[Rfam]
RNA sequence: CCUUUGCUCAACAAAUCGCCAUUCGAAGCUUACAAACGGAGAUGCUCUUGCAGCGUCUCGCCAUUCACAGCUUUGGGAGAAAGUCCCCGGACGUCUCUUUACGGAGCAUGCGGAAACGCGCCGCCAUAGAAGCACUGCGGCUGACCUCCGCGCCUUGGCCCGGCUGCGGCAUCUGCCCUGCCUGCUGCUAAAUCCGUCUCUCGCGAGGCAUUGUCAACCCUGUUCUUACGUCUCUGGCCCCCAUGGAUGAAGAUACGAGUCCGAGCUGGCGGCAAUGGGAUCAGGGCCGCUGCGAUGCUGAACCGAAGAUGGAUGGUAGGUGGACGUUUGGUGUCCGCGGCCGUGGUAUCGGGUGCAGAGGACUUGUUGUCGAGGUCGAUAGGUAUGCGAUUGCCUGGCGCAAGCUUGGUUACUCGAUGGGGCCCAUUCUUGAUGCGAAG
Numbered sequence: 001c002c003u004u005u006g007c008u009c010a011a012c013a014a015a016u017c018g019c020c021a022u023u024c025g026a027a028g029c030u031u032a033c034a035a036a037c038g039g040a041g042a043u044g045c046u047c048u049u050g051c052a053g054c055g056u057c058u059c060g061c062c063a064u065u066c067a068c069a070g071c072u073u074u075g076g077g078a079g080a081a082a083g084u085c086c087c088c089g090g091a092c093g094u095c096u097c098u099u100u101a102c103g104g105a106g107c108a109u110g111c112g113g114a115a116a117c118g119c120g121c122c123g124c125c126a127u128a129g130a131a132g133c134a135c136u137g138c139g140g141c142u143g144a145c146c147u148c149c150g151c152g153c154c155u156u157g158g159c160c161c162g163g164c165u166g167c168g169g170c171a172u173c174u175g176c177c178c179u180g181c182c183u184g185c186u187g188c189u190a191a192a193u194c195c196g197u198c199u200c201u202c203g204c205g206a207g208g209c210a211u212u213g214u215c216a217a218c219c220c221u222g223u224u225c226u227u228a229c230g231u232c233u234c235u236g237g238c239c240c241c242c243a244u245g246g247a248u249g250a251a252g253a254u255a256c257g258a259g260u261c262c263g264a265g266c267u268g269g270c271g272g273c274a275a276u277g278g279g280a281u282c283a284g285g286g287c288c289g290c291u292g293c294g295a296u297g298c299u300g301a302a303c304c305g306a307a308g309a310u311g312g313a314u315g316g317u318a319g320g321u322g323g324a325c326g327u328u329u330g331g332u333g334u335c336c337g338c339g340g341c342c343g344u345g346g347u348a349u350c351g352g353g354u355g356c357a358g359a360g361g362a363c364u365u366g367u368u369g370u371c372g373a374g375g376u377c378g379a380u381a382g383g384u385a386u387g388c389g390a391u392u393g394c395c396u397g398g399c400g401c402a403a404g405c406u407u408g409g410u411u412a413c414u415c416g417a418u419g420g421g422g423c424c425c426a427u428u429c430u431u432g433a434u435g436c437g438a439a440g
Base pairs, nucleotide, nucleotide: 002440003439004438005437006436007435008433009432010431011430014392015391016390017389018388019387023077024075025074026073027072028071029070039059040058041057042056043055044054045053083423085422086421087420088419109120110119111118112117148163149162150161152159153158284364285363288360290358291357292356293355298352299351300350302347303346304345335340394409395408397406398405399404